[Rfam]
RNA sequence: CAGGCCGGCACCCGCCGGCCGACUACCCCGGUACCUCAUACGGCCGGGGAG
Numbered sequence: 001c002a003g004g005c006c007g008g009c010a011c012c013c014g015c016c017g018g019c020c021g022a023c024u025a026c027c028c029c030g031g032u033a034c035c036u037c038a039u040a041c042g043g044c045c046g047g048g049g050a051g
Stems, first nucleotide, its partner, number of pairs: 001021001003020007023051002026049007
RNA: L17-Actino-Proteobacteria ribosomal protein leader
Organism: Nocardioides bruguierae